[Rfam]
RNA sequence: GCGGUCGUCGUAUAGUGGUUAGUACGUCACGUUGUGGCCGUGACAACCCCGGUUCGAAUCCGGGCGACCGCA
Numbered sequence: 001g002c003g004g005u006c007g008u009c010g011u012a013u014a015g016u017g018g019u020u021a022g023u024a025c026g027u028c029a030c031g032u033u034g035u036g037g038c039c040g041u042g043a044c045a046a047c048c049c050c051g052g053u054u055c056g057a058a059u060c061c062g063g064g065c066g067a068c069c070g071c072a
Base pairs, nucleotide, nucleotide: 001071002070003069004068005067006066007065010025011024012023013022027043028042029041030040031039048064049063050062051061052060